[Rfam]
RNA sequence: GGAGUUGACGGCUAGGGUUCCGGCGCCGUGGGGCGCGGCUGGUCCGAGAGCUGUCACCGCACGGGAGAGACAUCCCCGGCGGCGCACGGCGGGACAAAAACCCGGGAGAC
Numbered sequence: 001g002g003a004g005u006u007g008a009c010g011g012c013u014a015g016g017g018u019u020c021c022g023g024c025g026c027c028g029u030g031g032g033g034c035g036c037g038g039c040u041g042g043u044c045c046g047a048g049a050g051c052u053g054u055c056a057c058c059g060c061a062c063g064g065g066a067g068a069g070a071c072a073u074c075c076c077c078g079g080c081g082g083c084g085c086a087c088g089g090c091g092g093g094a095c096a097a098a099a100a101c102c103c104g105g106g107a108g109a110c
Stems, first nucleotide, its partner, number of pairs: 007055006015045002020042002022039001023036005057082004063076004085105001087108001091103003

The record is a 110-nucleotide sequence from Rubellimicrobium rubrum, which matches "Guanidine-I riboswitch aptamer" in Rfam.
From the family's description: This family represents a conserved RNA structure found upstream of the ykkC and yxkD genes in Bacillus subtilis and related genes in other bacteria. The function of this family is unclear although it has been suggested that it may function to switch on efflux pumps and detoxification systems in response to harmful environmental molecules.
The match comes from Rfam's covariance-model search (79 bits).